A member of the RNA family "Arthropod 7SK RNA" from Nezara viridula, 239 nucleotides long. Its Rfam clan is "7SK clan". For this family Rfam cites "Arthropod 7SK RNA" (Gruber et al., Mol Biol Evol, 2008).

RNA sequence: GGAAGUGUGUGUCAGGUGAUGGUACAACUGAACAUUGAUUUAGUGCAGAUCUGCUCAGUAUAGUGUUAUCACGUGGUUUCUAGUAGCCAAAGCGGAACUUCCCGAUGACUUGGCUCUCGGUAGAGAUCCGCUUCUCGGCUCCUCGAAUCACCGCGGCUGUUUCCAAAUUGGAGUACUCUCCCUCUGUAAUUUCGUCACUUCCAUUACUCGGCACUACAAGUCACCGUAGUCUGCCUUAG
Dot-bracket structure: (((((((........(((((.......(((..((..((((.......))))))..))).........)))))...........................................................................................................................))))))).......((((((((........)))))..)))....
Numbered sequence: 001g002g003a004a005g006u007g008u009g010u011g012u013c014a015g016g017u018g019a020u021g022g023u024a025c026a027a028c029u030g031a032a033c034a035u036u037g038a039u040u041u042a043g044u045g046c047a048g049a050u051c052u053g054c055u056c057a058g059u060a061u062a063g064u065g066u067u068a069u070c071a072c073g074u075g076g077u078u079u080c081u082a083g084u085a086g087c088c089a090a091a092g093c094g095g096a097a098c099u100u101c102c103c104g105a106u107g108a109c110u111u112g113g114c115u116c117u118c119g120g121u122a123g124a125g126a127u128c129c130g131c132u133u134c135u136c137g138g139c140u141c142c143u144c145g146a147a148u149c150a151c152c153g154c155g156g157c158u159g160u161u162u163c164c165a166a167a168u169u170g171g172a173g174u175a176c177u178c179u180c181c182c183u184c185u186g187u188a189a190u191u192u193c194g195u196c197a198c199u200u201c202c203a204u205u206a207c208u209c210g211g212c213a214c215u216a217c218a219a220g221u222c223a224c225c226g227u228a229g230u231c232u233g234c235c236u237u238a239g
Stems, first nucleotide, its partner, number of pairs: 001202007016072005028058003033053002037051004210235003213230005